[Rfam]
Overview: Rfam assigns this 84-nucleotide RNA from Aquariibacter albus to the family "SucA RNA motif". The family's consensus secondary structure is taken from published work.
RNA sequence: UCGCAAUCCGCCAAGCGGUCAAGCCGUGUCGCGGAAGGUUUUCCAACCAGCCAGAGUGCCGGCAGCCGGCGCGAAAGGUGAGCG
Dot-bracket structure: .(((..(((((....((((...))))....))))).((((....)))).(((...(((((((...)))))))....)))..)))
Gene Ontology term of the family: regulation of translation.